The record is an 81-nucleotide RNA from Thiemannella venezuelensis, which matches "ZMP/ZTP riboswitch aptamer (pfl RNA motif)" in Rfam. Pairs were carried over by alignment from the consensus structure, which is taken from published work. A search with the family's covariance model found it, with a score of 55 bits. The organism belongs to Thiemannella, within Bacteria.
RNA sequence: CGUCUAAGCCGCGACUGGCGCAUUGGGUGGGACAACCACCGGGGAGCGGAAUGGCGGAGGCCGCGCGCCUGGGUCUUCGUC
Number, nucleotide and partner (000 for none) at each position: 001c000002g000003u000004c054005u053006a052007a000008g000009c049010c048011g047012c046013g000014a000015c043016u042017g069018g068019c067020g066021c065022a000023u000024u000025g000026g000027g039028u038029g037030g036031g000032a000033c000034a000035a000036c030037c029038a028039c027040c000041g000042g016043g015044g000045a000046g012047c011048g010049g009050a000051a000052u006053g005054g004055c000056g000057g000058a076059g075060g074061c073062c072063g000064c000065g021066c020067g019068c018069c017070u000071g000072g062073g061074u060075c059076u058077u000078c000079g000080u000081c000